[Rfam]
RNA: mir-2060 microRNA precursor family
Organism: Branchiostoma belcheri
RNA sequence: GUGUGUUUGUGUGUGGAUGGUGUUCAGUACCAAGGACAGGUGUGUUUGUGUGUGGAUGGUGUUCAGCACCAAGGACAGGUUUUUUGCCU
Dot-bracket structure: ....((((((.......(((((((.(((((((.(.(((((....))))).).....))))))).)))))))...)))))).........